This 76-nucleotide RNA from Phyllobacterium sp. YR531 belongs to the Rfam family "S-element". This family represents a group of S-elements from p42d and related plasmids. The S-element has multiple functions and is believed to act as a negative regulator of repC transcription, be required for efficient replication and act as a translational enhancer of repC. A search with the family's covariance model found it, with a score of 47 bits. On this family, see Venkova-Canova et al., Mol Microbiol 2004: "Two discrete elements are required for the replication of a repABC plasmid: an antisense RNA and a stem-loop structure". Rfam links the family to the GO terms mRNA transcription and translation regulator activity.
[Rfam]
RNA sequence: CGUCAAGGGUUGAUUGAGCCCAGCGUCGUUUUGGCGAGCGGAUUUCUUUUGCCUGAUUGAAAGGUAGAGGACGAUG
Numbered sequence: 001c002g003u004c005a006a007g008g009g010u011u012g013a014u015u016g017a018g019c020c021c022a023g024c025g026u027c028g029u030u031u032u033g034g035c036g037a038g039c040g041g042a043u044u045u046c047u048u049u050u051g052c053c054u055g056a057u058u059g060a061a062a063g064g065u066a067g068a069g070g071a072c073g074a075u076g
Stems, first nucleotide, its partner, number of pairs: 009072003014067001025065003029062005036054001038052005